[Rfam]
RNA: Class I RNA from Dictyostelium
Organism: Nicator chloris
RNA sequence: GUACAAAUUACAGCAAUCAAAACAAAUUCCAUGUUGUUUUUAACAAACCUCAGUGUACUG
Dot-bracket structure: (((((................................................)))))..
Numbered sequence: 001g002u003a004c005a006a007a008u009u010a011c012a013g014c015a016a017u018c019a020a021a022a023c024a025a026a027u028u029c030c031a032u033g034u035u036g037u038u039u040u041u042a043a044c045a046a047a048c049c050u051c052a053g054u055g056u057a058c059u060g
Stems, first nucleotide, its partner, number of pairs: 001058005